RNA sequence: UGAGAUGGCCAGACAAUCGCGCUGAGAUAAUUCAGUGAGGAAAGUCCGGGCUCCAAAGGGUAAGGUGCCAGGUAACGCCUGGGGGGCGUGAGUCCACGGCAAGUGCAACAGAAAGAAUACCGCCCGGUGAUGUAAGAUUUGCGUCUGCAGCCGGGUAAGGGUGAAAUGGUGCGGUAAGAGCGCACCGCGCGGCUGGCAACAGCAACGGCAAGGUAAACCCCACCUGGAGCAAGACCAAAUAGGGGAACACGUGUUUCGGCACAACAUGCGACCCGCAUGGUUCCCGGGUAGGUUGCUUGAGGCAGAUGGUGACAUCUGUCCCAGAUGAAUGAUUGUCCACGACAGAACCCGGCUUAUCGGCCAUCUCAAUUU
Numbered sequence: 001u002g003a004g005a006u007g008g009c010c011a012g013a014c015a016a017u018c019g020c021g022c023u024g025a026g027a028u029a030a031u032u033c034a035g036u037g038a039g040g041a042a043a044g045u046c047c048g049g050g051c052u053c054c055a056a057a058g059g060g061u062a063a064g065g066u067g068c069c070a071g072g073u074a075a076c077g078c079c080u081g082g083g084g085g086g087c088g089u090g091a092g093u094c095c096a097c098g099g100c101a102a103g104u105g106c107a108a109c110a111g112a113a114a115g116a117a118u119a120c121c122g123c124c125c126g127g128u129g130a131u132g133u134a135a136g137a138u139u140u141g142c143g144u145c146u147g148c149a150g151c152c153g154g155g156u157a158a159g160g161g162u163g164a165a166a167u168g169g170u171g172c173g174g175u176a177a178g179a180g181c182g183c184a185c186c187g188c189g190c191g192g193c194u195g196g197c198a199a200c201a202g203c204a205a206c207g208g209c210a211a212g213g214u215a216a217a218c219c220c221c222a223c224c225u226g227g228a229g230c231a232a233g234a235c236c237a238a239a240u241a242g243g244g245g246a247a248c249a250c251g252u253g254u255u256u257c258g259g260c261a262c263a264a265c266a267u268g269c270g271a272c273c274c275g276c277a278u279g280g281u282u283c284c285c286g287g288g289u290a291g292g293u294u295g296c297u298u299g300a301g302g303c304a305g306a307u308g309g310u311g312a313c314a315u316c317u318g319u320c321c322c323a324g325a326u327g328a329a330u331g332a333u334u335g336u337c338c339a340c341g342a343c344a345g346a347a348c349c350c351g352g353c354u355u356a357u358c359g360g361c362c363a364u365c366u367c368a369a370u371u372u
Stems, first nucleotide, its partner, number of pairs: 001368010011357001012337007020037007042355003046352005051229004058274004063225005068082005083097001084095004098220002103218002105214002120160002122156007168186006187209001188207002192203004233294004243285006265279005301320008